[Rfam]
RNA: mir-26 microRNA precursor family
RNA sequence: CCUCUACCUGGUUCAAGUAAUCCAGGAUAGGCUGUGUCUGUCCUGGUUGGCCUAUUCAUGAUUACUUGCACUGGGUGGCAG
Numbered sequence: 001c002c003u004c005u006a007c008c009u010g011g012u013u014c015a016a017g018u019a020a021u022c023c024a025g026g027a028u029a030g031g032c033u034g035u036g037u038c039u040g041u042c043c044u045g046g047u048u049g050g051c052c053u054a055u056u057c058a059u060g061a062u063u064a065c066u067u068g069c070a071c072u073g074g075g076u077g078g079c080a081g
Stems, first nucleotide, its partner, number of pairs: 004078002007075006014068009025057009